A member of the RNA family "Mycobacterium sRNA ncrMT1302" from Nostocoides sp. F2B08, 95 nucleotides long. The family's RNA type in Rfam is small RNA. It scores 46 bits against the family's covariance model. The literature on the family includes a 2012 paper in Gene by Pelly et al., "A screen for non-coding RNA in Mycobacterium tuberculosis reveals a cAMP-responsive RNA that is expressed during infection". Taxonomically the source falls in Nostocoides (Bacteria, Actinomycetes, Micrococcales, Intrasporangiaceae).
[Rfam]
RNA sequence: AAGUGGCUGAUCCGAAGUGCCGGUGUGCGGGUGUGAGCCGGCCGCGCUGGAUAUCUGAGACGCCCCGCUGUGCCCUCCCGGGCCCGCCUCGACGU
Numbered sequence: 001a002a003g004u005g006g007c008u009g010a011u012c013c014g015a016a017g018u019g020c021c022g023g024u025g026u027g028c029g030g031g032u033g034u035g036a037g038c039c040g041g042c043c044g045c046g047c048u049g050g051a052u053a054u055c056u057g058a059g060a061c062g063c064c065c066c067g068c069u070g071u072g073c074c075c076u077c078c079c080g081g082g083c084c085c086g087c088c089u090c091g092a093c094g095u
Base pairs, nucleotide, nucleotide: 003076005074006073007072020041021040022039023038028033044063045062046061080089081088082087